[Rfam]
RNA sequence: GAUGAAGAUAAAGGCUGCGGUGCAUCAGAGUAGUAUGGGGACAAGACAUUGGUUGAAGCAUAUGAAAGGUAAUCAUCGCCGAAAGAAUGUCAUGGUAGUGAUAUUCUUGGGGAUUAGUGAAAGACAUUAAUCACUCCUUCGUAAGAAGAGGCGUUAUCUGUAAA
Numbered sequence: 001g002a003u004g005a006a007g008a009u010a011a012a013g014g015c016u017g018c019g020g021u022g023c024a025u026c027a028g029a030g031u032a033g034u035a036u037g038g039g040g041a042c043a044a045g046a047c048a049u050u051g052g053u054u055g056a057a058g059c060a061u062a063u064g065a066a067a068g069g070u071a072a073u074c075a076u077c078g079c080c081g082a083a084a085g086a087a088u089g090u091c092a093u094g095g096u097a098g099u100g101a102u103a104u105u106c107u108u109g110g111g112g113a114u115u116a117g118u119g120a121a122a123g124a125c126a127u128u129a130a131u132c133a134c135u136c137c138u139u140c141g142u143a144a145g146a147a148g149a150g151g152c153g154u155u156a157u158c159u160g161u162a163a164a
Stems, first nucleotide, its partner, number of pairs: 006159006017079006025071001033063005083108011109135002112132008137148004
Dot-bracket structure: .....((((((.....((((((..(.......(((((.....................))))).......)..))))))...(((((((((((....)))))))))))((.((((((((.....)))))))).)).((((....)))).....)))))).....
This 164-nucleotide sequence from Sharpea azabuensis belongs to the Rfam family "Lysine riboswitch aptamer". The source organism's lineage runs through Bacteria, Erysipelotrichia, Erysipelotrichales, Coprobacillaceae and Sharpea. It scores 61 bits against the family's covariance model.